The record is a 72-nucleotide RNA sequence from Streptomyces sp. NL15-2K, which matches "ASpks TB sRNA" in Rfam. The base pairs follow the family's consensus structure, which is taken from published work. NCBI's taxonomy places the organism under Bacteria, Bacillati, Kitasatosporales, Streptomycetaceae, Streptomyces. By type it is an antisense RNA.

RNA sequence: CUUGACGGAGCCCAGCCACAGCGGGUCCCCGGGGCCGCGCCUGCCGUAGGUGGCGAGCAGGGCCUGCGCCUC
Numbered sequence: 001c002u003u004g005a006c007g008g009a010g011c012c013c014a015g016c017c018a019c020a021g022c023g024g025g026u027c028c029c030c031g032g033g034g035c036c037g038c039g040c041c042u043g044c045c046g047u048a049g050g051u052g053g054c055g056a057g058c059a060g061g062g063c064c065u066g067c068g069c070c071u072c
Stems, first nucleotide, its partner, number of pairs: 014026001016024002028068001030066001035062002040057001042055001044053003